Description:
Shown here is a 134-nucleotide RNA from Castor canadensis, a member of the family "Small nucleolar RNA SNORA51". Lineage of the source: Eukaryota > Chordata > Glires > Castorimorpha > Castor.
RNA sequence: CAUCUCUUGGUAUUUACCACAGGCUGUGUUCUUACAUAGACUAUAUAGAUAACAAGGAAGAAAAAUAAACCUAUCCCAUAUACAGCUCAGCGCAGGCCCUGUGCCUGGUCUGUAUUGUAAAUGGGAAGACACAG
Numbered sequence: 001c002a003u004c005u006c007u008u009g010g011u012a013u014u015u016a017c018c019a020c021a022g023g024c025u026g027u028g029u030u031c032u033u034a035c036a037u038a039g040a041c042u043a044u045a046u047a048g049a050u051a052a053c054a055a056g057g058a059a060g061a062a063a064a065a066u067a068a069a070c071c072u073a074u075c076c077c078a079u080a081u082a083c084a085g086c087u088c089a090g091c092g093c094a095g096g097c098c099c100u101g102u103g104c105c106u107g108g109u110c111u112g113u114a115u116u117g118u119a120a121a122u123g124g125g126a127a128g129a130c131a132c133a134g
Base pairs, nucleotide, nucleotide: 003060005058006057007056008055021042022041026037027036028035029034074126075125076124077123078122079121088112089111090110093107094106095105096104097103
Dot-bracket structure: ..(.((((............((...((((....))))...))............)))).).............((((((........(((..(((((.....)))))..)))........))))))........
About the family: ACA51 is a member of the H/ACA class of snoRNA that guide the sites of modification of uridines to pseudouridines.